Background:
The family of this 135-nucleotide RNA from Denticeps clupeoides is "Small nucleolar RNA SNORA9". Its family is annotated with RNA processing and nucleolus in the Gene Ontology. The family's consensus secondary structure was predicted with PFOLD. The source organism's lineage runs through Eukaryota, Gnathostomata, Teleostomi, Teleostei and Denticeps. By type it is an H/ACA-box small nucleolar RNA. ACA9 is a member of the H/ACA class of snoRNA that guide the sites of modification of uridines to pseudouridines. Rfam 15.1 lists 1,202 matches to the family in 518 species.
[Rfam]
RNA sequence: AUGCAGGCCUUUCCAGCGAGGCUCAGCCUGCACUGGCUUUGUCCUUUCCUACAGUGCCUGCUAAAGAAACCUGGGCUUGUUUGAGGCUUUGUCGUAUUAUGUUUACGGCAAAGUUAUGUAAUCCCCCAGACAUCU
Dot-bracket structure: ..((((((..........(((...((((......))))....)))..........))))))..........((((...........((((((.(((.......))).))))))...........)))).......